[Rfam]
RNA sequence: UGAUGACAUAUUCUCCGGAAUCUCUGUACUGCCUCUGAUGAAAGUACAUUUGAACCCUUUUCCAUCUGAUGACUGUUGUGAUCUUUCUC
Number, nucleotide and partner (000 for none) at each position: 001u000002g089003a088004u000005g086006a085007c000008a000009u000010a000011u000012u000013c000014u000015c000016c000017g000018g000019a000020a000021u000022c000023u000024c000025u000026g000027u000028a000029c000030u000031g000032c000033c000034u000035c000036u000037g000038a000039u000040g000041a000042a000043a000044g000045u000046a000047c000048a000049u000050u000051u000052g000053a000054a000055c000056c000057c000058u000059u000060u000061u000062c000063c000064a000065u000066c000067u000068g000069a000070u000071g000072a000073c000074u000075g000076u000077u000078g000079u000080g000081a000082u000083c000084u000085u006086u005087c000088u003089c002
RNA: Small nucleolar RNA MBII-202
Organism: Monodelphis domestica